The record is a 52-nucleotide RNA from Pararhodobacter oceanensis, which matches "ffh sRNA" in Rfam. It is annotated as a small RNA. The family's consensus secondary structure is taken from published work. On this family, see Meyer et al., BMC Genomics 2009: "Identification of candidate structured RNAs in the marine organism 'Candidatus Pelagibacter ubique'".
RNA sequence: UUUUGCGGGGAUCGCCAUCCGUCAGCGCGUUGCGCCCACGGAUGCGUUACCC
Number, nucleotide and partner (000 for none) at each position: 001u000002u000003u000004u000005g000006c000007g000008g000009g000010g000011a000012u000013c000014g000015c000016c044017a043018u042019c041020c040021g039022u038023c000024a000025g035026c034027g033028c032029g000030u000031u000032g028033c027034g026035c025036c000037c000038a022039c021040g020041g019042a018043u017044g016045c000046g000047u000048u000049a000050c000051c000052c000